Record summary:
This 511-nucleotide part of an RNA from Fasciolopsis buskii belongs to the Rfam family "Eukaryotic large subunit ribosomal RNA". A search with the family's covariance model found it, with a score of 2590 bits. The family is grouped with related families in Rfam's "LSU clan".
RNA sequence: GGUAGUAGCAAAUAUUCAAGUGAGAACCUUGAAGGCCGAGGUGGAGAAGGGUUCCAUGGGAACAGCAGUUGGCCAUGGGUCAGGCGGUCCUAAGUGAUCCGGUAAAUCGGUACAGAGACGGGGUGCCUGACAUUGUCAGGAUUGCUGCCAUUGUACUGUUGCACGGUAGCCCCCUGUAGCGAAAGGGAAUCGGGUUAAUAUUCCCGACCCUGCCCACGGAGAUUGGUGUAUUCUGGCUUCGGUCAGUUUGCACCUGGCGCGGUAACGCAAUCGACCUCGGAGACGUCGGCGAGAGUUCUGGGAAGAGUUCUCUUUUCUUUGUUAGGAGUGCACCAUCCCCUGGAAACGGGUUGUCCGGAGAUAGGGGACUAGCCUCCGUAAAGCACCACCCUUCUUGUGGUGUCCGGAACGCUCUCGUCGGCCCUUGAAAAUCCGAGCAAGGCUAUAUAAUUUUCGUGGCAGGCCGUACCCAUAUCCGCAUCAGGUCUCCAAGGUGAACAGCCUCUGGCAU
Numbered sequence: 001g002g003u004a005g006u007a008g009c010a011a012a013u014a015u016u017c018a019a020g021u022g023a024g025a026a027c028c029u030u031g032a033a034g035g036c037c038g039a040g041g042u043g044g045a046g047a048a049g050g051g052u053u054c055c056a057u058g059g060g061a062a063c064a065g066c067a068g069u070u071g072g073c074c075a076u077g078g079g080u081c082a083g084g085c086g087g088u089c090c091u092a093a094g095u096g097a098u099c100c101g102g103u104a105a106a107u108c109g110g111u112a113c114a115g116a117g118a119c120g121g122g123g124u125g126c127c128u129g130a131c132a133u134u135g136u137c138a139g140g141a142u143u144g145c146u147g148c149c150a151u152u153g154u155a156c157u158g159u160u161g162c163a164c165g166g167u168a169g170c171c172c173c174c175u176g177u178a179g180c181g182a183a184a185g186g187g188a189a190u191c192g193g194g195u196u197a198a199u200a201u202u203c204c205c206g207a208c209c210c211u212g213c214c215c216a217c218g219g220a221g222a223u224u225g226g227u228g229u230a231u232u233c234u235g236g237c238u239u240c241g242g243u244c245a246g247u248u249u250g251c252a253c254c255u256g257g258c259g260c261g262g263u264a265a266c267g268c269a270a271u272c273g274a275c276c277u278c279g280g281a282g283a284c285g286u287c288g289g290c291g292a293g294a295g296u297u298c299u300g301g302g303a304a305g306a307g308u309u310c311u312c313u314u315u316u317c318u319u320u321g322u323u324a325g326g327a328g329u330g331c332a333c334c335a336u337c338c339c340c341u342g343g344a345a346a347c348g349g350g351u352u353g354u355c356c357g358g359a360g361a362u363a364g365g366g367g368a369c370u371a372g373c374c375u376c377c378g379u380a381a382a383g384c385a386c387c388a389c390c391c392u393u394c395u396u397g398u399g400g401u402g403u404c405c406g407g408a409a410c411g412c413u414c415u416c417g418u419c420g421g422c423c424c425u426u427g428a429a430a431a432u433c434c435g436a437g438c439a440a441g442g443c444u445a446u447a448u449a450a451u452u453u454u455c456g457u458g459g460c461a462g463g464c465c466g467u468a469c470c471c472a473u474a475u476c477c478g479c480a481u482c483a484g485g486u487c488u489c490c491a492a493g494g495u496g497a498a499c500a501g502c503c504u505c506u507g508g509c510a511u
Base pairs, nucleotide, nucleotide: 015033016032017031018030019029020028035509036508037507043490044489045488046487049470050469054078055077056076057075058074059073063071064070085466086465087464089186090185094180095179097111098110100109101108102107120173121172122171123170124169190207191206192205193204194203210462211461212460213459215458216457217456218455219454220452221451226268227267228266276437277436278435279434280433281432285422286421287420288419290417291416292415293414294413295412296411298407299406300405302320303319304318305317306316325377326376327375328374337367338366339365340364341363342362347357348356349355384402385401386400387399388398389397476485477484492504493503494502495501